[Rfam]
RNA sequence: GGCUUAUCAAGAGAGGUGGAGGGACUGGCCCGAUGAAACCCGGCAACCACUAGUCUAGCGUCAGCUUCGGCUGACGCUAGGCUAGUGGUGCCAAUUCCUGCAGCGGAAACGUUGAAAGAUGAGCCA
Numbered sequence: 001g002g003c004u005u006a007u008c009a010a011g012a013g014a015g016g017u018g019g020a021g022g023g024a025c026u027g028g029c030c031c032g033a034u035g036a037a038a039c040c041c042g043g044c045a046a047c048c049a050c051u052a053g054u055c056u057a058g059c060g061u062c063a064g065c066u067u068c069g070g071c072u073g074a075c076g077c078u079a080g081g082c083u084a085g086u087g088g089u090g091c092c093a094a095u096u097c098c099u100g101c102a103g104c105g106g107a108a109a110c111g112u113u114g115a116a117a118g119a120u121g122a123g124c125c126a
Base pairs, nucleotide, nucleotide: 001125002124003123004122005121006120007119008118013041015040016039017038021031022030023029025100027098028097042092043091044090045089047088048087049086050085051084052083053082054081055080056079057078058077059076060075061074062073063072096117101114102113103112104111105110
Overview
A member of the RNA family "SAM riboswitch aptamer (S box leader)" from Caldanaerobacter subterraneus, 126 nucleotides long. Taxonomically the source falls in Caldanaerobacter (Bacteria, Bacillati, Thermoanaerobacterales, Thermoanaerobacteraceae). The sequence is in the family's curated seed alignment.